Source information:
The family of this 78-nucleotide sequence from Geotrypetes seraphini is "mir-103/107 microRNA precursor family". This family consists of the mammalian microRNA (miRNA) precursors mir-103 and mir107. Animal miRNAs are transcribed as ~70nt precursors and subsequently processed by the Dicer enzyme to give a ~22nt product. In this case the mature sequence comes from the 3' arm of the precursor. The extents of the hairpin precursors are not generally known and are estimated based on hairpin prediction. The products are thought to have regulatory roles through complementarity to mRNA. The involvement of Dicer in miRNA processing suggests a relationship with the phenomenon of RNA interference. miRNAs are numbered based on the sequence of the mature RNA. Pairs were carried over by alignment from the consensus structure, which was predicted with RNAalifold. Rfam 15.1 lists 1,982 matches to the family in 645 species. A reference for the family is Ambros (2001), "microRNAs: tiny regulators with great potential", Cell.

RNA sequence: CUGUACUUUUAGCUUCUUUACGGUGCUGCCUUGUAAGAUUUAUGUCAAGCAGCAUUGUACAGGGCUAUGAAAGAACUG
Numbered sequence: 001c002u003g004u005a006c007u008u009u010u011a012g013c014u015u016c017u018u019u020a021c022g023g024u025g026c027u028g029c030c031u032u033g034u035a036a037g038a039u040u041u042a043u044g045u046c047a048a049g050c051a052g053c054a055u056u057g058u059a060c061a062g063g064g065c066u067a068u069g070a071a072a073g074a075a076c077u078g
Stems, first nucleotide, its partner, number of pairs: 014064004019059010030049004